[Rfam]
RNA sequence: UAUCGCCGAGCGCAGGCUAAGGGCGCCAAGUCCUGUGGCAACGCCUGCAUGACCUGCAUCCUGUGGG
Numbered sequence: 001u002a003u004c005g006c007c008g009a010g011c012g013c014a015g016g017c018u019a020a021g022g023g024c025g026c027c028a029a030g031u032c033c034u035g036u037g038g039c040a041a042c043g044c045c046u047g048c049a050u051g052a053c054c055u056g057c058a059u060c061c062u063g064u065g066g067g
Stems, first nucleotide, its partner, number of pairs: 012048006025039004053067005

The record is a 67-nucleotide sequence from Bacillus sp. NRRL B-14911, which matches "Bacillaceae-1 RNA" in Rfam.
Rfam classes the family as a small RNA.
The sequence is in the family's curated seed alignment.
Lineage of the source: Bacteria > Bacilli > Caryophanales > Bacillaceae > Bacillus.
Pairs were carried over by alignment from the consensus structure, which is taken from published work.